Annotation
A member of the RNA family "Small nucleolar RNA SNORD14" from Panicum virgatum, 119 nucleotides long. The base pairs follow the family's consensus structure, which was predicted with PFOLD. The family has 18 seed sequences and 4,559 matches in Rfam 15.1. The match comes from Rfam's covariance-model search (97 bits).

[Rfam]
RNA sequence: UGGCGAUGAUGCUAAAGCUAAGGCUUGUUUCUCAACAUUCGCAGUAGCCACCCAAGAGCUUUCGCCCCGCCAGGCUUGAGAGCUAAUGCUGUUAAAUCCUUCCUUGGAUGUCUGAGCCA
Numbered sequence: 001u002g003g004c005g006a007u008g009a010u011g012c013u014a015a016a017g018c019u020a021a022g023g024c025u026u027g028u029u030u031c032u033c034a035a036c037a038u039u040c041g042c043a044g045u046a047g048c049c050a051c052c053c054a055a056g057a058g059c060u061u062u063c064g065c066c067c068c069g070c071c072a073g074g075c076u077u078g079a080g081a082g083c084u085a086a087u088g089c090u091g092u093u094a095a096a097u098c099c100u101u102c103c104u105u106g107g108a109u110g111u112c113u114g115a116g117c118c119a
Stems, first nucleotide, its partner, number of pairs: 001119004058083006

The literature on the family includes a 1996 paper in Nucleic Acids Res by Samarsky et al., "An essential domain in Saccharomyces cerevisiae U14 snoRNA is absent in vertebrates, but conserved in other yeasts".
The source organism's lineage runs through Eukaryota, Streptophyta, Embryophyta, Poales and Panicum sect. Hiantes.
U14 small nucleolar RNA (U14 snoRNA) is required for early cleavages of eukaryotic precursor rRNAs. In yeasts, this molecule possess a stem-loop region (known as the Y-domain) which is essential for function. A similar structure, but with a different consensus sequence, is found in plants, but is absent in vertebrates.
Its family is annotated with RNA processing and nucleolus in the Gene Ontology.